[Rfam]
Nucleotides: 099
Base pairs, nucleotide, nucleotide: 006099007098008097009096
Number, partner (000 for none) and nucleotide at each position: 001000g002000g003000a004000g005000u006099u007098u008097g009096c010000g011000a012000u013000g014000a015000g016000g017000a018000c019000a020000a021000a022000c023000a024000a025000u026000c027000u028000c029000c030000c031000u032000c033000u034000u035000c036000u037000g038000a039000a040000g041000a042000a043000a044000u045000u046000g047000a048000g049000a050000a051000c052000g053000c054000u055000u056000g057000c058000u059000g060000g061000c062000a063000g064000a065000a066000u067000c068000g069000a070000a071000c072000c073000a074000a075000u076000a077000a078000a079000c080000c081000u082000a083000u084000u085000g086000c087000c088000a089000c090000c091000a092000c093000u094000g095000a096009g097008u098007a099006a
Record summary
Small nucleolar RNA R30/Z108: a 99-nucleotide sequence from Panicum virgatum. The base pairs follow the family's consensus structure, which was predicted with PFOLD. Rfam's curators write: snoR30 is a C/D box small nucleolar RNA which acts as a methylation guide for 18S ribosomal RNA in plants. The family's RNA type in Rfam is C/D-box small nucleolar RNA. Gene Ontology terms of the family: nucleolus and RNA processing. The match comes from Rfam's covariance-model search (90 bits).